MIR8024 microRNA precursor family: an 88-nucleotide RNA from Solanum commersonii. The family's consensus secondary structure was predicted with RNAalifold.
RNA sequence: UUGGAGGAUUUGAAGACUUAAACUUGUAAACUUGAAUAAUUUGAAGACUUCAAACUCGUAUAUCUAAAGAAUUUGAAGACUUCCAACU
Numbered sequence: 001u002u003g004g005a006g007g008a009u010u011u012g013a014a015g016a017c018u019u020a021a022a023c024u025u026g027u028a029a030a031c032u033u034g035a036a037u038a039a040u041u042u043g044a045a046g047a048c049u050u051c052a053a054a055c056u057c058g059u060a061u062a063u064c065u066a067a068a069g070a071a072u073u074u075g076a077a078g079a080c081u082u083c084c085a086a087c088u
Stems, first nucleotide, its partner, number of pairs: 001086006009077006017069003021065001025060003032053005